[Rfam]
RNA sequence: CGGGAUCCGUCCCGUUGGAAUGUGGCCGGCAAAAGAUGACGGCUGAACCGUGAA
Dot-bracket structure: (((((....))))).(((.....(((((...........)))))...)))....

This 54-nucleotide RNA sequence from Methanimicrococcus blatticola belongs to the Rfam family "eL15-Euryarchaeota ribosomal protein leader".
The source organism's lineage runs through Archaea, Methanobacteriota, Methanomicrobia, Methanosarcinales and Methanimicrococcus.
On this family, see Eckert and Weinberg, BMC Microbiol 2020: "Discovery of 20 novel ribosomal leader candidates in bacteria and archaea".
The match comes from Rfam's covariance-model search (53 bits).